[Rfam]
RNA: Small nucleolar RNA SNORD58
Organism: Atractosteus spatula
RNA sequence: UUGCAAUGAUGACUUCUUAGGACACCUUUGGAAAUACCAUGAAAAAAAAUUCUAAACCCUGAGCAAU
Numbered sequence: 001u002u003g004c005a006a007u008g009a010u011g012a013c014u015u016c017u018u019a020g021g022a023c024a025c026c027u028u029u030g031g032a033a034a035u036a037c038c039a040u041g042a043a044a045a046a047a048a049a050u051u052c053u054a055a056a057c058c059c060u061g062a063g064c065a066a067u
Stems, first nucleotide, its partner, number of pairs: 001066004